[Rfam]
RNA sequence: CGCAGAUGUUAAACUAUCGUUCUGGGAACAGUCGCUCUUACAAGCUGUUUCCAUGGAGAUAGCUUAGCAACUCCU
Numbered sequence: 001c002g003c004a005g006a007u008g009u010u011a012a013a014c015u016a017u018c019g020u021u022c023u024g025g026g027a028a029c030a031g032u033c034g035c036u037c038u039u040a041c042a043a044g045c046u047g048u049u050u051c052c053a054u055g056g057a058g059a060u061a062g063c064u065u066a067g068c069a070a071c072u073c074c075u
Stems, first nucleotide, its partner, number of pairs: 004072002007069006014062005020057003023053010
Shown here is a 75-nucleotide RNA from Branchiostoma belcheri, a member of the family "mir-4879 microRNA precursor family". The organism belongs to Branchiostoma, within Eukaryota. The family has 2 seed sequences and 3 matches in Rfam 15.1. Rfam links the family to the GO terms RISC complex and miRNA-mediated post-transcriptional gene silencing.